[Rfam]
Shown here is a 74-nucleotide RNA sequence from Phyllotreta striolata, a member of the family "mir-11 microRNA precursor family".
The literature on the family includes a 2010 paper in Funct Integr Genomics by Cai et al., "Novel microRNAs in silkworm (Bombyx mori)".
Taxonomically the source falls in Phyllotreta (Eukaryota, Eumetazoa, Protostomia, Pterygota).
Rfam 15.1 lists 138 matches to the family in 136 species.
Its family is annotated with miRNA-mediated post-transcriptional gene silencing, negative regulation of cell death and RISC complex in the Gene Ontology.
Pairs were carried over by alignment from the consensus structure, which was predicted with RNAalifold.
RNA sequence: UUGCGUUCCUGAGCUCUAUCUGUGACCUGUGUUUCAUUCCUAUUCACAUCACAGGCAGAGUUCUAGCUAUGCGG
Numbered sequence: 001u002u003g004c005g006u007u008c009c010u011g012a013g014c015u016c017u018a019u020c021u022g023u024g025a026c027c028u029g030u031g032u033u034u035c036a037u038u039c040c041u042a043u044u045c046a047c048a049u050c051a052c053a054g055g056c057a058g059a060g061u062u063c064u065a066g067c068u069a070u071g072c073g074g
Base pairs, nucleotide, nucleotide: 004071005070006069009066010065011063012062013061014060015059016058020054021053022052023051024050025049029047030046031045